[Rfam]
RNA sequence: UUUCCUCAGCCUUACUCCAGGGCCUCUCUGACCCGUCAAACGCCUUGGCAUUGCCUGAGGAUACAUUAAAACCCUGCUCGAUUCCCUCCCCAACAGGGAUUCUGGAUUUCCUUUGGGGUCUACAGGUUGAGCCAACAUG
Numbered sequence: 001u002u003u004c005c006u007c008a009g010c011c012u013u014a015c016u017c018c019a020g021g022g023c024c025u026c027u028c029u030g031a032c033c034c035g036u037c038a039a040a041c042g043c044c045u046u047g048g049c050a051u052u053g054c055c056u057g058a059g060g061a062u063a064c065a066u067u068a069a070a071a072c073c074c075u076g077c078u079c080g081a082u083u084c085c086c087u088c089c090c091c092a093a094c095a096g097g098g099a100u101u102c103u104g105g106a107u108u109u110c111c112u113u114u115g116g117g118g119u120c121u122a123c124a125g126g127u128u129g130a131g132c133c134a135a136c137a138u139g
Base pairs, nucleotide, nucleotide: 003061004060005059006058007057008056009055011053017048018047019046020045021044022043025039027038076132077131079129080128088118089117090116091115092114093113095112096111097110098109
RNA: Small nucleolar RNA SNORA49